A member of the RNA family "FMN riboswitch aptamer (RFN element)" from Atopobium minutum, 131 nucleotides long. The match comes from Rfam's covariance-model search (116 bits). Lineage of the source: Bacteria > Bacillati > Actinomycetota > Coriobacteriia > Atopobium minutum. Pairs were carried over by alignment from the consensus structure, which is taken from published work.
[Rfam]
RNA sequence: UCACAGUUUCAGGGCGGGGUGCAAUUCCCCACUGGCGGUAAGGCGCUUUGCCAAGCCCGCGCGCCGAAAAGAUCGGCUGAUCUGGUGCAAAUCCAGAGCCAACGGUAUAGUCCGGAUGGAAGAAACGGAGC
Numbered sequence: 001u002c003a004c005a006g007u008u009u010c011a012g013g014g015c016g017g018g019g020u021g022c023a024a025u026u027c028c029c030c031a032c033u034g035g036c037g038g039u040a041a042g043g044c045g046c047u048u049u050g051c052c053a054a055g056c057c058c059g060c061g062c063g064c065c066g067a068a069a070a071g072a073u074c075g076g077c078u079g080a081u082c083u084g085g086u087g088c089a090a091a092u093c094c095a096g097a098g099c100c101a102a103c104g105g106u107a108u109a110g111u112c113c114g115g116a117u118g119g120a121a122g123a124a125a126c127g128g129a130g131c
Stems, first nucleotide, its partner, number of pairs: 004128001006126005017029003031111002033101002035060004055099002063077003081097005103114003